The record is a 105-nucleotide sequence from Prunus avium, which matches "MIR2275 microRNA precursor family" in Rfam. Gene Ontology terms of the family: RISC complex and miRNA-mediated post-transcriptional gene silencing.
RNA sequence: AAGUCGUAUGUGAGAAUUGGAGGGGACUAAACAAAUUACAACAUCUCUAUCUCAACGAGAAACUCAUAAUUUGUUUAGUUUCCUCCAAUAUCUCAUCUCCGACAU
Dot-bracket structure: ...(((.(..((((.((((((.((((((((.(((((((............................))))))).)))))))).))))))..))))..).)))...
Numbered sequence: 001a002a003g004u005c006g007u008a009u010g011u012g013a014g015a016a017u018u019g020g021a022g023g024g025g026a027c028u029a030a031a032c033a034a035a036u037u038a039c040a041a042c043a044u045c046u047c048u049a050u051c052u053c054a055a056c057g058a059g060a061a062a063c064u065c066a067u068a069a070u071u072u073g074u075u076u077a078g079u080u081u082c083c084u085c086c087a088a089u090a091u092c093u094c095a096u097c098u099c100c101g102a103c104a105u
Stems, first nucleotide, its partner, number of pairs: 004102003008098001011095004016089006023082008032073007
The source organism's lineage runs through Eukaryota, Tracheophyta, Mesangiospermae, Pentapetalae and Prunus.